RNA sequence: GACACGGACCGGGCCCCUCUGGCGGGCGCAUGAAGCGCUCGUGAUGUCGGACGUAUCG
Numbered sequence: 001g002a003c004a005c006g007g008a009c010c011g012g013g014c015c016c017c018u019c020u021g022g023c024g025g026g027c028g029c030a031u032g033a034a035g036c037g038c039u040c041g042u043g044a045u046g047u048c049g050g051a052c053g054u055a056u057c058g
Stems, first nucleotide, its partner, number of pairs: 006052001009050004022042008

Background:
The family of this 58-nucleotide RNA sequence from Erythrobacter litoralis is "terC RNA". The organism belongs to Erythrobacter litoralis, within Bacteria. Pairs were carried over by alignment from the consensus structure, which is taken from published work.